Notes: The family of this 51-nucleotide sequence from Polerovirus PDMV is "Exoribonuclease-resistant RNA (xrRNA) plant-infecting virus (class 3)". The sequence is in the family's curated seed alignment. On this family, see Steckelberg et al., mBio 2018: "Exoribonuclease-Resistant RNAs Exist within both Coding and Noncoding Subgenomic RNAs". The family's consensus secondary structure is taken from published work. Lineage of the source: Viruses > Pisoniviricetes > Sobelivirales > Polerovirus > Polerovirus PDMV. About the family: Exoribonuclease-resistant RNA (xrRNA) plant-infecting virus (class 3) is a ncRNA that was reported in Plant viruses.
RNA sequence: GAGUGAGCCAGACAUACGCAAGCUGCAAGUACUGGACACUAAGCCUUGCAC
Numbered sequence: 001g002a003g004u005g006a007g008c009c010a011g012a013c014a015u016a017c018g019c020a021a022g023c024u025g026c027a028a029g030u031a032c033u034g035g036a037c038a039c040u041a042a043g044c045c046u047u048g049c050a051c
Stems, first nucleotide, its partner, number of pairs: 001040001008035002011033001012030002018049005